[Rfam]
RNA: MIR2275 microRNA precursor family
RNA sequence: AAGCUGAAUGUGAGAUUUGGAUGGAACCAAAUCUUCAGCUGCAUUGGCACAAGAUUUGGUUUCCUCCAAUAUCUCACCUUCAACUG
Numbered sequence: 001a002a003g004c005u006g007a008a009u010g011u012g013a014g015a016u017u018u019g020g021a022u023g024g025a026a027c028c029a030a031a032u033c034u035u036c037a038g039c040u041g042c043a044u045u046g047g048c049a050c051a052a053g054a055u056u057u058g059g060u061u062u063c064c065u066c067c068a069a070u071a072u073c074u075c076a077c078c079u080u081c082a083a084c085u086g
Stems, first nucleotide, its partner, number of pairs: 005082004011076004017069005023063008032054002